[Rfam]
RNA sequence: GUUGCUUCCCAAUGGCGAAUCCUCUUUUUUAAAACAAGAGGUUUUCAAGUUUCCCAAAGCAUAAAUUAAACCAAAAAACCCGUCUCAAACAACUUGGUGUAAUUUAUUUUAGCUACACUCUAUUACCUGUUGUGUUAGUUU
Numbered sequence: 001g002u003u004g005c006u007u008c009c010c011a012a013u014g015g016c017g018a019a020u021c022c023u024c025u026u027u028u029u030u031a032a033a034a035c036a037a038g039a040g041g042u043u044u045u046c047a048a049g050u051u052u053c054c055c056a057a058a059g060c061a062u063a064a065a066u067u068a069a070a071c072c073a074a075a076a077a078a079c080c081c082g083u084c085u086c087a088a089a090c091a092a093c094u095u096g097g098u099g100u101a102a103u104u105u106a107u108u109u110u111a112g113c114u115a116c117a118c119u120c121u122a123u124u125a126c127c128u129g130u131u132g133u134g135u136u137a138g139u140u141u
Stems, first nucleotide, its partner, number of pairs: 003061005017046003021041005078136001080134001084132001091124002096119004
The family of this 141-nucleotide RNA sequence from Lathyrus oleraceus is "small nucleolar RNA snoR137". A search with the family's covariance model found it, with a score of 53 bits. It is annotated as an H/ACA-box small nucleolar RNA.